This 305-nucleotide RNA from Pelusios castaneus belongs to the Rfam family "Small Cajal body-specific RNA 7".
NCBI's taxonomy places the organism under Eukaryota, Tetrapoda, Sauropsida, Testudines, Pelusios.
Rfam links the family to the GO terms RNA processing and nucleolus.
It scores 97 bits against the family's covariance model.
The literature on the family includes a 2002 paper in EMBO J by Darzacq et al., "Cajal body-specific small nuclear RNAs: a novel class of 2'-O-methylation and pseudouridylation guide RNAs".
By type it is a small Cajal body RNA.
RNA sequence: UGAAAAUAAUGAAAUAGAGGUGAAAUUCUGUUUGAAUGAUGUGUAUUAAAUGUGUGUGAUUUAACACUUAAUUUAUGCUUUUGAAUUAUAAUGUGCGUUGGAGAAAAGGCGCGAGGACUAUAACAUGGGGGCACUGGUAGAUAAAGUGCUGAUUUUUGCAGUGUAUCUGAGGCAUAUUGAAAUUUGGGGGGAUUUUUUUCCCCAACAUUGCCAGUGAUCAGAGUCCAGAAUAAGUUCAACAGAUGAAUCUAGACAUCUUAAAAAUCUGAGUUCACUGACAUAAAUGAUCCUGUGAUCUGAUCCAA
Numbered sequence: 001u002g003a004a005a006a007u008a009a010u011g012a013a014a015u016a017g018a019g020g021u022g023a024a025a026u027u028c029u030g031u032u033u034g035a036a037u038g039a040u041g042u043g044u045a046u047u048a049a050a051u052g053u054g055u056g057u058g059a060u061u062u063a064a065c066a067c068u069u070a071a072u073u074u075a076u077g078c079u080u081u082u083g084a085a086u087u088a089u090a091a092u093g094u095g096c097g098u099u100g101g102a103g104a105a106a107a108g109g110c111g112c113g114a115g116g117a118c119u120a121u122a123a124c125a126u127g128g129g130g131g132c133a134c135u136g137g138u139a140g141a142u143a144a145a146g147u148g149c150u151g152a153u154u155u156u157u158g159c160a161g162u163g164u165a166u167c168u169g170a171g172g173c174a175u176a177u178u179g180a181a182a183u184u185u186g187g188g189g190g191g192a193u194u195u196u197u198u199u200c201c202c203c204a205a206c207a208u209u210g211c212c213a214g215u216g217a218u219c220a221g222a223g224u225c226c227a228g229a230a231u232a233a234g235u236u237c238a239a240c241a242g243a244u245g246a247a248u249c250u251a252g253a254c255a256u257c258u259u260a261a262a263a264a265u266c267u268g269a270g271u272u273c274a275c276u277g278a279c280a281u282a283a284a285u286g287a288u289c290c291u292g293u294g295a296u297c298u299g300a301u302c303c304a305a
Stems, first nucleotide, its partner, number of pairs: 001304002004301001175207001177205003180195006